[Rfam]
RNA sequence: AAAUAUUUUAUCGAUAUAGAAUACUCAUAUUGAUAAAAUGAUUUGAACCGCUU
Numbered sequence: 001a002a003a004u005a006u007u008u009u010a011u012c013g014a015u016a017u018a019g020a021a022u023a024c025u026c027a028u029a030u031u032g033a034u035a036a037a038a039u040g041a042u043u044u045g046a047a048c049c050g051c052u053u
Stems, first nucleotide, its partner, number of pairs: 011033007